Record summary:
The record is a 224-nucleotide sequence from Bemisia tabaci, which matches "RNase MRP" in Rfam. A search with the family's covariance model found it, with a score of 58 bits.

RNA sequence: CUGUUCCGUCGAGAAGCACCUCGAGACCACAUACAGGGUGUUGAUCACCUCCGUGUCUCGCGGCUAGUCCUCGGACCCGUGGCAGCAAGUGCCCGAGUGUGAAACUCGACCUUUCAGUGCGGAUGGAAGGGAACACCCCGUGUGAUCGUACUCCGUCACUGACUGGAUACAUUGUCGUAGCAAAGUUAUGUGCAUAACGAAAUGAGGCUCACUCCAACGGAAAU
Numbered sequence: 001c002u003g004u005u006c007c008g009u010c011g012a013g014a015a016g017c018a019c020c021u022c023g024a025g026a027c028c029a030c031a032u033a034c035a036g037g038g039u040g041u042u043g044a045u046c047a048c049c050u051c052c053g054u055g056u057c058u059c060g061c062g063g064c065u066a067g068u069c070c071u072c073g074g075a076c077c078c079g080u081g082g083c084a085g086c087a088a089g090u091g092c093c094c095g096a097g098u099g100u101g102a103a104a105c106u107c108g109a110c111c112u113u114u115c116a117g118u119g120c121g122g123a124u125g126g127a128a129g130g131g132a133a134c135a136c137c138c139c140g141u142g143u144g145a146u147c148g149u150a151c152u153c154c155g156u157c158a159c160u161g162a163c164u165g166g167a168u169a170c171a172u173u174g175u176c177g178u179a180g181c182a183a184a185g186u187u188a189u190g191u192g193c194a195u196a197a198c199g200a201a202a203u204g205a206g207g208c209u210c211a212c213u214c215c216a217a218c219g220g221a222a223a224u
Stems, first nucleotide, its partner, number of pairs: 004222006011215001014195001016193004021062001022060006036050005066209002069207004081093004095107004110166002114162006120155004126147002134142003